The record is a 185-nucleotide RNA sequence from Apilactobacillus kunkeei, which matches "Lysine riboswitch aptamer" in Rfam. It scores 110 bits against the family's covariance model. Its family is annotated with lysine biosynthetic process in the Gene Ontology. NCBI's taxonomy places the organism under Bacteria, Bacillati, Bacillota, Lactobacillaceae, Apilactobacillus.
[Rfam]
RNA sequence: AGUAAUCGAAGAGGUCGCAAGCGAGAUUAGUAGAUAAAGUCAGUCACUGCAAUGACUAUGAGCUUUAUUGAAAGGUGAACUUGCCGAAGUUAAUGAUUUUUUGCAGAGAUCAUUUUCUGGGACGUGUGUGAAGAAUGCACGGACUGUCACAAGAAAAUAUGUCUUGUGGAGCGCUUUCGACAAUU
Numbered sequence: 001a002g003u004a005a006u007c008g009a010a011g012a013g014g015u016c017g018c019a020a021g022c023g024a025g026a027u028u029a030g031u032a033g034a035u036a037a038a039g040u041c042a043g044u045c046a047c048u049g050c051a052a053u054g055a056c057u058a059u060g061a062g063c064u065u066u067a068u069u070g071a072a073a074g075g076u077g078a079a080c081u082u083g084c085c086g087a088a089g090u091u092a093a094u095g096a097u098u099u100u101u102u103g104c105a106g107a108g109a110u111c112a113u114u115u116u117c118u119g120g121g122a123c124g125u126g127u128g129u130g131a132a133g134a135a136u137g138c139a140c141g142g143a144c145u146g147u148c149a150c151a152a153g154a155a156a157a158u159a160u161g162u163c164u165u166g167u168g169g170a171g172c173g174c175u176u177u178c179g180a181c182a183a184u185u
Base pairs, nucleotide, nucleotide: 006180007179008178009177010175011174017084018083019082020081021080025076033069034068035067036066037065038064039063040062088118089117092114093113094112095111096110097109098108099107119145120144123141124140125139126138127137128136129135147169148168149167150166151165152164153163